The record is a 169-nucleotide RNA sequence from Berryella intestinalis, which matches "Vibrio RNA AS7" in Rfam. Rfam classes the family as an antisense RNA. From the family's description: Identified by direct cloning an parallel sequencing experiments with 5S/tRNA depletion. Confirmed by Northern blot. Pairs were carried over by alignment from the consensus structure, which was predicted with RNAfold.
RNA sequence: GGCGUUUGCAGCGUGAGCUUCGCCCGAUCGGCGAUGACCCCUCCGAUGUAGUAGGGAAGGCCGCAGUUGGCGUACGAGACGUAUCCGCUCCGCUCGAGGAUGACGAUCUCGGCGAAUUCGUCGAGGCGGCGCAAUCUUGCGGCUGCCGUGGCGCCCCCUGCGACGCCCC
Numbered sequence: 001g002g003c004g005u006u007u008g009c010a011g012c013g014u015g016a017g018c019u020u021c022g023c024c025c026g027a028u029c030g031g032c033g034a035u036g037a038c039c040c041c042u043c044c045g046a047u048g049u050a051g052u053a054g055g056g057a058a059g060g061c062c063g064c065a066g067u068u069g070g071c072g073u074a075c076g077a078g079a080c081g082u083a084u085c086c087g088c089u090c091c092g093c094u095c096g097a098g099g100a101u102g103a104c105g106a107u108c109u110c111g112g113c114g115a116a117u118u119c120g121u122c123g124a125g126g127c128g129g130c131g132c133a134a135u136c137u138u139g140c141g142g143c144u145g146c147c148g149u150g151g152c153g154c155c156c157c158c159u160g161c162g163a164c165g166c167c168c169c
Base pairs, nucleotide, nucleotide: 001167002166003165004164005163006162008161009160010159011025013023014022015021016020032056035053036052040048060071061070062069076154080150087143088142092140093139096136101131102130104128105127107125110123111122112121113120114119